This 268-nucleotide RNA from Firmicutes bacterium CAG:646 belongs to the Rfam family "Clostridiales-1 RNA". A search with the family's covariance model found it, with a score of 72 bits. The source organism's lineage runs through Bacteria, Bacillati and Bacillota. The family's RNA type in Rfam is small RNA.
[Rfam]
RNA sequence: AGAUGCCAGGGUCAAAAAUCAUAAACUACGUUGUGCUUGCACAUAAGUGGUUUUAUGACUUUAUGACUCGCCCCGAUAUGAGGGUACUGCGUGCCGGUGGCACGCGUUUAGCACCGACCGCAACGGAGUGUAGAACAAAGUGGGGCGUAUGCCUCACGAUAUCCGAAUUUGGGGCAGAAUUGUGGGGUGCUGCGUGCCAGUGGCACGCGUUUAGCACCGACCGAAGUGAAACGUAGAUGCGCAGCACGAAACAAUUCGCCAGGCAUCU
Numbered sequence: 001a002g003a004u005g006c007c008a009g010g011g012u013c014a015a016a017a018a019u020c021a022u023a024a025a026c027u028a029c030g031u032u033g034u035g036c037u038u039g040c041a042c043a044u045a046a047g048u049g050g051u052u053u054u055a056u057g058a059c060u061u062u063a064u065g066a067c068u069c070g071c072c073c074c075g076a077u078a079u080g081a082g083g084g085u086a087c088u089g090c091g092u093g094c095c096g097g098u099g100g101c102a103c104g105c106g107u108u109u110a111g112c113a114c115c116g117a118c119c120g121c122a123a124c125g126g127a128g129u130g131u132a133g134a135a136c137a138a139a140g141u142g143g144g145g146c147g148u149a150u151g152c153c154u155c156a157c158g159a160u161a162u163c164c165g166a167a168u169u170u171g172g173g174g175c176a177g178a179a180u181u182g183u184g185g186g187g188u189g190c191u192g193c194g195u196g197c198c199a200g201u202g203g204c205a206c207g208c209g210u211u212u213a214g215c216a217c218c219g220a221c222c223g224a225a226g227u228g229a230a231a232c233g234u235a236g237a238u239g240c241g242c243a244g245c246a247c248g249a250a251a252c253a254a255u256u257c258g259c260c261a262g263g264c265a266u267c268u
Stems, first nucleotide, its partner, number of pairs: 001268007010068004016061002019058004023053007032043004072174003076170001078168002082164004089157001091155001093153001177257007187247010